Overview
Small nucleolar RNA R38: an 87-nucleotide sequence from Triticum aestivum. Rfam describes the family as follows. snoR38 is a C/D box small nucleolar RNA conserved across yeast, human, Arabidopsis and rice. It is encoded in the intron of elongation factor-1 gamma in both pombe and cerevisiae. snoR38 guides the methylation of 2'-O-ribose sites in 28S rRNA. For this family Rfam cites "Antisense snoRNAs: a family of nucleolar RNAs with long complementarities to rRNA" (Bachellerie et al., Trends Biochem Sci, 1995). The organism belongs to Triticum, within Eukaryota. Rfam classes the family as a C/D-box small nucleolar RNA. The family's consensus secondary structure was predicted with PFOLD.

RNA sequence: GGAUGUGGAUGAUGAGAGUAAAAAUACAGUUAUCCCUGUCUUACUUCCUCGGAAGGGUGCUGAGAAUACUUUCAAUCUGACACGAUU
Numbered sequence: 001g002g003a004u005g006u007g008g009a010u011g012a013u014g015a016g017a018g019u020a021a022a023a024a025u026a027c028a029g030u031u032a033u034c035c036c037u038g039u040c041u042u043a044c045u046u047c048c049u050c051g052g053a054a055g056g057g058u059g060c061u062g063a064g065a066a067u068a069c070u071u072u073c074a075a076u077c078u079g080a081c082a083c084g085a086u087u
Base pairs, nucleotide, nucleotide: 001087002086004084005083006082007081